[Rfam]
RNA sequence: AAGAGAAAAAUGAGAAAGACGAGUAGGUCGUUGAUUUGUCCAGUGAGUCAGGGCUAGUGGAAACCUGACCAACCCUCUGCGAUUGAAUAACACUUUCGAAGAUUACUAACCCAAAUGCAUUGCAAAGUAGGCUUAGUCGUGACCGGAACGUUACCACCGGAUGAGUAUGUUUGUACUCAAUGAAAAGUGGGCUAGUAAUACCCUAGCCAACUUGGGUGGUACCGCGGAAAUAAGUCUUUCGUCCCUUGU
Number, nucleotide and partner (000 for none) at each position: 001a000002a000003g000004a000005g000006a000007a104008a103009a000010a000011u000012g000013a000014g000015a096016a095017a094018g093019a000020c000021g000022a000023g000024u000025a000026g084027g083028u082029c081030g080031u079032u000033g000034a000035u000036u072037u071038g070039u000040c000041c000042a000043g000044u000045g000046a000047g069048u068049c067050a066051g065052g064053g000054c000055u000056a000057g000058u000059g000060g000061a000062a000063a000064c052065c051066u050067g049068a048069c047070c038071a037072a036073c000074c000075c000076u000077c000078u000079g031080c030081g029082a028083u027084u026085g000086a000087a000088u000089a000090a000091c000092a000093c018094u017095u016096u015097c000098g000099a000100a000101g000102a000103u008104u007105a000106c136107u135108a134109a133110c000111c131112c130113a000114a000115a000116u000117g000118c000119a000120u000121u000122g000123c000124a000125a000126a000127g000128u000129a000130g112131g111132c000133u109134u108135a107136g106137u000138c150139g149140u148141g000142a000143c000144c000145g000146g000147a000148a140149c139150g138151u000152u000153a000154c000155c000156a000157c000158c000159g000160g000161a000162u000163g000164a000165g000166u000167a000168u000169g000170u000171u000172u000173g000174u000175a000176c000177u000178c000179a000180a000181u000182g000183a000184a000185a000186a000187g000188u000189g000190g208191g207192c206193u205194a204195g203196u000197a000198a000199u000200a000201c000202c000203c195204u194205a193206g192207c191208c190209a000210a000211c000212u000213u000214g245215g244216g243217u000218g000219g000220u000221a000222c000223c000224g242225c241226g240227g239228a238229a000230a000231u000232a000233a000234g000235u000236c000237u000238u228239u227240c226241g225242u224243c216244c215245c214246u000247u000248g000249u000
RNA: T-box leader